[Rfam]
RNA sequence: UCGCCCAAAAUGCCUCUCACGGUUUCAACACGGAUGCGGUCUCGUGUGCAGCGUGUGAGCGGACACAAGCACGAAUGACGAGCCCGUCGGUCUCGUACCGAAUCCCUUCCCAGGGGCAUCCUUGUUGGAGUCGUCGUCGGCCCAUGCCGAUGCGUUCCACCUUUGGUCUCCUCGCGCUAACCCCGUAGCGUGUGGUUUUUAGCGGGCUCAUCAGCCCGCUUUUUUUCG
Numbered sequence: 001u002c003g004c005c006c007a008a009a010a011u012g013c014c015u016c017u018c019a020c021g022g023u024u025u026c027a028a029c030a031c032g033g034a035u036g037c038g039g040u041c042u043c044g045u046g047u048g049c050a051g052c053g054u055g056u057g058a059g060c061g062g063a064c065a066c067a068a069g070c071a072c073g074a075a076u077g078a079c080g081a082g083c084c085c086g087u088c089g090g091u092c093u094c095g096u097a098c099c100g101a102a103u104c105c106c107u108u109c110c111c112a113g114g115g116g117c118a119u120c121c122u123u124g125u126u127g128g129a130g131u132c133g134u135c136g137u138c139g140g141c142c143c144a145u146g147c148c149g150a151u152g153c154g155u156u157c158c159a160c161c162u163u164u165g166g167u168c169u170c171c172u173c174g175c176g177c178u179a180a181c182c183c184c185g186u187a188g189c190g191u192g193u194g195g196u197u198u199u200u201a202g203c204g205g206g207c208u209c210a211u212c213a214g215c216c217c218g219c220u221u222u223u224u225u226u227c228g
Stems, first nucleotide, its partner, number of pairs: 005166003019134012032121006038084003042078001053066004087101005104115004137150005170195002173192007201220008
The family of this 228-nucleotide RNA from Burkholderia mallei is "Burkholderia sRNA Bp1_Cand871_SIPHT". By type it is a small RNA. The family's consensus secondary structure was predicted with CMfinder. The organism belongs to Burkholderia mallei, within Bacteria.